[Rfam]
RNA sequence: GUCAUACUACGGUGCAUUGAGGUGCAAAGUAAACGAUGACCCAUAGGGAACUCUGGGUUAAAAUACGUAUCAAAAUGCAAAACCGAUCCUGACCCUGGGGGAAUCUCCGGGUCAGGUUUCUUU
Numbered sequence: 001g002u003c004a005u006a007c008u009a010c011g012g013u014g015c016a017u018u019g020a021g022g023u024g025c026a027a028a029g030u031a032a033a034c035g036a037u038g039a040c041c042c043a044u045a046g047g048g049a050a051c052u053c054u055g056g057g058u059u060a061a062a063a064u065a066c067g068u069a070u071c072a073a074a075a076u077g078c079a080a081a082a083c084c085g086a087u088c089c090u091g092a093c094c095c096u097g098g099g100g101g102a103a104u105c106u107c108c109g110g111g112u113c114a115g116g117u118u119u120c121u122u123u
Base pairs, nucleotide, nucleotide: 001040002039003038004037005036010035011034014030015029041048042047057071059069060068088116089115090114091113092112093111094110095109097107098106
This 123-nucleotide sequence from Winslowiella iniecta belongs to the Rfam family "Enterobacteria greA leader". The base pairs follow the family's consensus structure, which is taken from published work. It is annotated as a cis-regulatory leader. Its family is annotated with regulation of gene expression in the Gene Ontology. The source organism's lineage runs through Bacteria, Pseudomonadati, Pseudomonadota, Gammaproteobacteria and Winslowiella. The literature on the family includes a 2010 paper in Genome Biol by Naville and Gautheret, "Premature terminator analysis sheds light on a hidden world of bacterial transcriptional attenuation".